[Rfam]
RNA sequence: CAGCUGUCUUUAUGGUAGCAGUUGUAGCAUUCCUCUGUGGGAAAGAAACUGUUACACAAUUUAAUGCCUCUUUCUUAGCCACACAGGAGGAGGAUUAUGUGUGACAGACACAA
Numbered sequence: 001c002a003g004c005u006g007u008c009u010u011u012a013u014g015g016u017a018g019c020a021g022u023u024g025u026a027g028c029a030u031u032c033c034u035c036u037g038u039g040g041g042a043a044a045g046a047a048a049c050u051g052u053u054a055c056a057c058a059a060u061u062u063a064a065u066g067c068c069u070c071u072u073u074c075u076u077a078g079c080c081a082c083a084c085a086g087g088a089g090g091a092g093g094a095u096u097a098u099g100u101g102u103g104a105c106a107g108a109c110a111c112a113a
Base pairs, nucleotide, nucleotide: 001024002023003022004021005020006019054102055101056100057099058098067093068092069091070090071089072088073087074086075085
This 113-nucleotide RNA sequence belongs to the Rfam family "Small nucleolar RNA SNORA41". Its family is annotated with nucleolus and RNA processing in the Gene Ontology. By type it is an H/ACA-box small nucleolar RNA. The literature on the family includes a 2001 paper in EMBO J by Huttenhofer et al., "RNomics: an experimental approach that identifies 201 candidates for novel, small, non-messenger RNAs in mouse". About the family: ACA41 is a member of the H/ACA class of snoRNA that guide the sites of modification of uridines to pseudouridines. It is one of the family's seed sequences.